Overview
This 77-nucleotide RNA from Alligator mississippiensis belongs to the Rfam family "Mammalian CPEB3 ribozyme". The mammalian CPEB3 ribozyme is a self cleaving RNA located in the second intron of the CPEB3 gene which belongs to a family of genes regulating messenger RNA polyadenylation. It scores 49 bits against the family's covariance model. The family's consensus secondary structure is taken from published work.

[Rfam]
RNA sequence: AGUCACUAGUUUGAGGCCAUAGCAGAAGUGCUCGUGGUGUGGCCUUGUCAGAUUCCAAUGAAUUUGUGAAUUCUGCU
Numbered sequence: 001a002g003u004c005a006c007u008a009g010u011u012u013g014a015g016g017c018c019a020u021a022g023c024a025g026a027a028g029u030g031c032u033c034g035u036g037g038u039g040u041g042g043c044c045u046u047g048u049c050a051g052a053u054u055c056c057a058a059u060g061a062a063u064u065u066g067u068g069a070a071u072u073c074u075g076c077u
Base pairs, nucleotide, nucleotide: 014045015044016043017042018041021077022076023075024074025073026072027071028040029039030038049066050065051064052063053062054061055060
Dot-bracket structure: .............[[[[[..((((((((((.......)))]]]]]...(((((((....)))))))....)))))))